[Rfam]
RNA: Bacteroidales-1 6S-Bacteroidales RNA suggested
RNA sequence: GGCUGCAUCGGUUUGAUCGGGAUACUCAUCAAUAAUUACUAGAAAUACCGAGAAUGCUUCCUUCGUCAAUGGCGGGCCGACACGUUUCGGCGGAGUCGGAUUACAGAGACGGAGUGGCGCUCAAAUCCUUAUUUUAGCUCGGAGUUUCAUCACAUCAUCGAUGCAGCUUUCUUU
Numbered sequence: 001g002g003c004u005g006c007a008u009c010g011g012u013u014u015g016a017u018c019g020g021g022a023u024a025c026u027c028a029u030c031a032a033u034a035a036u037u038a039c040u041a042g043a044a045a046u047a048c049c050g051a052g053a054a055u056g057c058u059u060c061c062u063u064c065g066u067c068a069a070u071g072g073c074g075g076g077c078c079g080a081c082a083c084g085u086u087u088c089g090g091c092g093g094a095g096u097c098g099g100a101u102u103a104c105a106g107a108g109a110c111g112g113a114g115u116g117g118c119g120c121u122c123a124a125a126u127c128c129u130u131a132u133u134u135u136a137g138c139u140c141g142g143a144g145u146u147u148c149a150u151c152a153c154a155u156c157a158u159c160g161a162u163g164c165a166g167c168u169u170u171c172u173u174u
Stems, first nucleotide, its partner, number of pairs: 056118003061114007070105002077099004083092003